[Rfam]
RNA sequence: UCAUCAAUUGAAUAGAUAAUUCGUAUAAGUUCGGGGAUAUGGCCCGAAAGUUUCUACCGGAACGCCUUAAAUGUUCCGACUACGAUUCGAUAGAAGGGGCUA
Numbered sequence: 001u002c003a004u005c006a007a008u009u010g011a012a013u014a015g016a017u018a019a020u021u022c023g024u025a026u027a028a029g030u031u032c033g034g035g036g037a038u039a040u041g042g043c044c045c046g047a048a049a050g051u052u053u054c055u056a057c058c059g060g061a062a063c064g065c066c067u068u069a070a071a072u073g074u075u076c077c078g079a080c081u082a083c084g085a086u087u088c089g090a091u092a093g094a095a096g097g098g099g100c101u102a
Stems, first nucleotide, its partner, number of pairs: 019087001021085005030048006058078007
Annotation: Shown here is a 102-nucleotide RNA sequence from Sporosarcina limicola, a member of the family "Purine riboswitch aptamer". Riboswitches are metabolite binding domains within certain messenger RNAs that serve as precision sensors for their corresponding targets. The family's consensus secondary structure is taken from published work.